[Rfam]
RNA sequence: ACAAGGUCAGCGGGAGAGCGUAUCCAGCUUUCAUGCAAAGAUACCGCCGAAGGAGCAACCGCCUCGGAAACUCUCAGGCACAAGGGACCGCCCGACCAGCG
Numbered sequence: 001a002c003a004a005g006g007u008c009a010g011c012g013g014g015a016g017a018g019c020g021u022a023u024c025c026a027g028c029u030u031u032c033a034u035g036c037a038a039a040g041a042u043a044c045c046g047c048c049g050a051a052g053g054a055g056c057a058a059c060c061g062c063c064u065c066g067g068a069a070a071c072u073c074u075c076a077g078g079c080a081c082a083a084g085g086g087a088c089c090g091c092c093c094g095a096c097c098a099g100c101g
Stems, first nucleotide, its partner, number of pairs: 006096003010091004020044004046079003049075002053073003059066001

This 101-nucleotide sequence from Cohaesibacter celericrescens belongs to the Rfam family "Glycine riboswitch aptamer". The pairing is the family consensus, mapped onto this sequence.